[Rfam]
RNA: Small nucleolar RNA SNORA51
Organism: Rhinopithecus roxellana
RNA sequence: GGCCUCCUGGUGCUAUCCCAAGCUGGGUUCUUCCACUGACUGUAUAGAAUAAGGAGGUAAACUCCCAUGUGCACCUCAGCCUAGGCCCUGUGCCUUAUCUGUAUUGUGCCUGGGAACACAGAA
Numbered sequence: 001g002g003c004c005u006c007c008u009g010g011u012g013c014u015a016u017c018c019c020a021a022g023c024u025g026g027g028u029u030c031u032u033c034c035a036c037u038g039a040c041u042g043u044a045u046a047g048a049a050u051a052a053g054g055a056g057g058u059a060a061a062c063u064c065c066c067a068u069g070u071g072c073a074c075c076u077c078a079g080c081c082u083a084g085g086c087c088c089u090g091u092g093c094c095u096u097a098u099c100u101g102u103a104u105u106g107u108g109c110c111u112g113g114g115a116a117c118a119c120a121g122a123a
Base pairs, nucleotide, nucleotide: 002058003057004056005055006054007053008052019042020041025036027034063115064114065113066112067111077101078100079099083095084094085093086092